The family of this 167-nucleotide RNA from Niallia nealsonii is "SAM riboswitch aptamer (S box leader)". Pairs were carried over by alignment from the consensus structure, which is taken from published work. The source organism's lineage runs through Bacteria, Bacillati, Bacillota, Bacillaceae and Niallia.
[Rfam]
RNA sequence: CUCUUAUCCUGAGCUGGUGGAGGGACUGGCCCGAUGAAACCCAGCAACCUACUAUGUGAAGAAAUUAGCCUGGAACUUUUCGAUUGUUUAUUUGAGAAGUAGCGGACAUUCUCUUAGGAAAGGUGCUAACCUGAAGCAAGGACAUAUAUGUUCUUGAACGAUAAGAG
Numbered sequence: 001c002u003c004u005u006a007u008c009c010u011g012a013g014c015u016g017g018u019g020g021a022g023g024g025a026c027u028g029g030c031c032c033g034a035u036g037a038a039a040c041c042c043a044g045c046a047a048c049c050u051a052c053u054a055u056g057u058g059a060a061g062a063a064a065u066u067a068g069c070c071u072g073g074a075a076c077u078u079u080u081c082g083a084u085u086g087u088u089u090a091u092u093u094g095a096g097a098a099g100u101a102g103c104g105g106a107c108a109u110u111c112u113c114u115u116a117g118g119a120a121a122g123g124u125g126c127u128a129a130c131c132u133g134a135a136g137c138a139a140g141g142a143c144a145u146a147u148a149u150g151u152u153c154u155u156g157a158a159c160g161a162u163a164a165g166a167g
Stems, first nucleotide, its partner, number of pairs: 001167008013042001016041003022032003026136002029132001043127004048123002050119001052117002137156006